[Rfam]
The record is a 182-nucleotide RNA sequence from Sorghum bicolor, which matches "MIR6217 microRNA precursor family" in Rfam. The source organism's lineage runs through Eukaryota, Streptophytina, Poaceae, Sorghinae and Sorghum. The base pairs follow the family's consensus structure, which was predicted with RNAalifold.

RNA sequence: UAGCCACUUUGAGUUACAAUAAUUACUAUAUUAAUUUACAAGAUUAUAGUAACUCUUUACUAAGUGGUUUACUAUACCAUUAUGCUAAAUAUCUCCAUGUGUUAUAGUAACCAAACUAUCGUAAAUAUGUAUACAUAUUAUCGUAAAUUAAUAUAUAAAGUUAUCGUAAAUAGAGGUGGCUA
Numbered sequence: 001u002a003g004c005c006a007c008u009u010u011g012a013g014u015u016a017c018a019a020u021a022a023u024u025a026c027u028a029u030a031u032u033a034a035u036u037u038a039c040a041a042g043a044u045u046a047u048a049g050u051a052a053c054u055c056u057u058u059a060c061u062a063a064g065u066g067g068u069u070u071a072c073u074a075u076a077c078c079a080u081u082a083u084g085c086u087a088a089a090u091a092u093c094u095c096c097a098u099g100u101g102u103u104a105u106a107g108u109a110a111c112c113a114a115a116c117u118a119u120c121g122u123a124a125a126u127a128u129g130u131a132u133a134c135a136u137a138u139u140a141u142c143g144u145a146a147a148u149u150a151a152u153a154u155a156u157a158a159a160g161u162u163a164u165c166g167u168a169a170a171u172a173g174a175g176g177u178g179g180c181u182a
Stems, first nucleotide, its partner, number of pairs: 001182010014169004019164006027155013042142003046138003049134003056125005064119006070109007078101003084094001